[Rfam]
RNA sequence: AUGACACCAGGAGUUCCCCCAAACACUUCAGUGGGAAUUCAUUAGAGAAGAUCCCCAGUGAAGUGGUCAGGGGAACUCUAGGGGACAC
Numbered sequence: 001a002u003g004a005c006a007c008c009a010g011g012a013g014u015u016c017c018c019c020c021a022a023a024c025a026c027u028u029c030a031g032u033g034g035g036a037a038u039u040c041a042u043u044a045g046a047g048a049a050g051a052u053c054c055c056c057a058g059u060g061a062a063g064u065g066g067u068c069a070g071g072g073g074a075a076c077u078c079u080a081g082g083g084g085a086c087a088c
Stems, first nucleotide, its partner, number of pairs: 005084001007082002011078009023067001024065007032057004